[Rfam]
RNA sequence: ACCGGAUCUAGCCUGACGGGGCGAAAAGCGGCAAACCUUACCGCCUGAUCUGGUCAUCUUUUUAAGG
Numbered sequence: 001a002c003c004g005g006a007u008c009u010a011g012c013c014u015g016a017c018g019g020g021g022c023g024a025a026a027a028g029c030g031g032c033a034a035a036c037c038u039u040a041c042c043g044c045c046u047g048a049u050c051u052g053g054u055c056a057u058c059u060u061u062u063u064a065a066g067g
Stems, first nucleotide, its partner, number of pairs: 001054008011022004028044004036067005
About this RNA: int-alpA RNA: a 67-nucleotide sequence from Erwinia pyrifoliae. Acidobacteria (1 example), Planctomycetes (1 example), Proteobacteria. It is one of the family's seed sequences. It is annotated as a small RNA. The family's consensus secondary structure is taken from published work.